c-di-AMP riboswitch aptamer (ydaO/yuaA leader): a 185-nucleotide RNA sequence from Streptomyces benahoarensis. It scores 53 bits against the family's covariance model. NCBI's taxonomy places the organism under Bacteria, Bacillati, Actinomycetota, Streptomycetaceae, Streptomyces.

RNA sequence: GGGCCGCCUCCGCCGAGUCCGGCCCUGCCCCACGGCACCCGGAGCCGGGGACCCACCAGCACCACCGGGGUGAAUCGGUCGGUACGGCCGCACGCGUGCGAACGUACGGACCGUAGGGCAAGCCUUCCGUCUGCGACACCGCCCGAACCCGACAGCUAACCCGGUAGGCGGUCCACGGAAGGAGU
Numbered sequence: 001g002g003g004c005c006g007c008c009u010c011c012g013c014c015g016a017g018u019c020c021g022g023c024c025c026u027g028c029c030c031c032a033c034g035g036c037a038c039c040c041g042g043a044g045c046c047g048g049g050g051a052c053c054c055a056c057c058a059g060c061a062c063c064a065c066c067g068g069g070g071u072g073a074a075u076c077g078g079u080c081g082g083u084a085c086g087g088c089c090g091c092a093c094g095c096g097u098g099c100g101a102a103c104g105u106a107c108g109g110a111c112c113g114u115a116g117g118g119c120a121a122g123c124c125u126u127c128c129g130u131c132u133g134c135g136a137c138a139c140c141g142c143c144c145g146a147a148c149c150c151g152a153c154a155g156c157u158a159a160c161c162c163g164g165u166a167g168g169c170g171g172u173c174c175a176c177g178g179a180a181g182g183a184g185u
Stems, first nucleotide, its partner, number of pairs: 011170004018043005044165006054067001068150003076113004116144004